RNA sequence: CUCUUAUCAAGAGAGGUGGAGGGAAUAGGGCCCUGUGAAACCCGGCAACCGGCUAAUAAGCUACGGUGCCAAUUCCAGCAGUAUAACUGCAAGAUAAGAG
Numbered sequence: 001c002u003c004u005u006a007u008c009a010a011g012a013g014a015g016g017u018g019g020a021g022g023g024a025a026u027a028g029g030g031c032c033c034u035g036u037g038a039a040a041c042c043c044g045g046c047a048a049c050c051g052g053c054u055a056a057u058a059a060g061c062u063a064c065g066g067u068g069c070c071a072a073u074u075c076c077a078g079c080a081g082u083a084u085a086a087c088u089g090c091a092a093g094a095u096a097a098g099a100g
Stems, first nucleotide, its partner, number of pairs: 001100008013043001015042003021033003029076002044070004049066002051062004074092001079089004